[Rfam]
The record is a 45-nucleotide RNA from Ciceribacter sp. L1K22, which matches "ctRNA" in Rfam.
RNA sequence: AGAGAGGCUUCCACGACGGCAUCGUCUGGGGGCCUUUUCUUUUGC
Numbered sequence: 001a002g003a004g005a006g007g008c009u010u011c012c013a014c015g016a017c018g019g020c021a022u023c024g025u026c027u028g029g030g031g032g033c034c035u036u037u038u039c040u041u042u043u044g045c
Base pairs, nucleotide, nucleotide: 005035006034007033008032009031010030011029012028015026016025017024018023
Rfam's curators write: This family represents a group of ctRNAs (or counter-transcribed RNAs) from p42d and related plasmids. ctRNAs are small, highly structured, antisense sequences which are involved in negative regulation. Members of this family are known to bind to the mRNA of repC causing translational repression. This model contains the predicted stem-loop structure followed by a U-rich tract which is proposed to act as a Rho-independent transcriptional terminator. The base pairs follow the family's consensus structure, which is taken from published work. The family's RNA type in Rfam is antisense RNA.